The record is a 106-nucleotide sequence from Bacillus sp. 165, which matches "SAM riboswitch aptamer (S box leader)" in Rfam. The family's consensus secondary structure is taken from published work. The match comes from Rfam's covariance-model search (76 bits). The organism belongs to Bacillus, within Bacteria.
RNA sequence: UUCUUAUCAAGAGCAGGCAGAGGGAACGAGCCCUACGAAGCCCGGCAACCGACUCCACAUGGAGCACGGUGCUAAUUCUCGCAGCAAUUAUGCUGACAGAUGAGGA
Numbered sequence: 001u002u003c004u005u006a007u008c009a010a011g012a013g014c015a016g017g018c019a020g021a022g023g024g025a026a027c028g029a030g031c032c033c034u035a036c037g038a039a040g041c042c043c044g045g046c047a048a049c050c051g052a053c054u055c056c057a058c059a060u061g062g063a064g065c066a067c068g069g070u071g072c073u074a075a076u077u078c079u080c081g082c083a084g085c086a087a088u089u090a091u092g093c094u095g096a097c098a099g100a101u102g103a104g105g106a
Base pairs, nucleotide, nucleotide: 001106002105003104004103005102006101007100008099013043016042017041018040022033023032024031027081028080029079030078044073045072046071047070049069050068051065054062077098082095083094084093085092086091